[Rfam]
RNA sequence: CAUAUAUUUUAUGAUGGUAUGAUACUAAACCCUCACGGGUAGGAUUAUACCUGAUAUUCAUAUG
Numbered sequence: 001c002a003u004a005u006a007u008u009u010u011a012u013g014a015u016g017g018u019a020u021g022a023u024a025c026u027a028a029a030c031c032c033u034c035a036c037g038g039g040u041a042g043g044a045u046u047a048u049a050c051c052u053g054a055u056a057u058u059c060a061u062a063u064g
Stems, first nucleotide, its partner, number of pairs: 001064005016051008025042001031039003
Notes:
Rfam assigns this 64-nucleotide sequence from Mytilus galloprovincialis to the family "Selenocysteine insertion sequence 1". For this family Rfam cites "A novel RNA structural motif in the selenocysteine insertion element of eukaryotic selenoprotein mRNAs" (Walczak et al., RNA, 1996). It is annotated as a cis-regulatory element. From the family's description: The incorporation of selenocysteine into a protein sequence is directed by an in-frame UGA codon (usually a stop codon) within the coding region of the mRNA. Selenoprotein mRNAs contain a conserved secondary structure in the 3' UTR that is required for the distinction of UGA stop from UGA selenocysteine. The selenocysteine insertion sequence (SECIS) is around 60 nt in length and adopts a hairpin structure which is sufficiently well-defined and conserved to act as a computational screen for selenoprotein genes.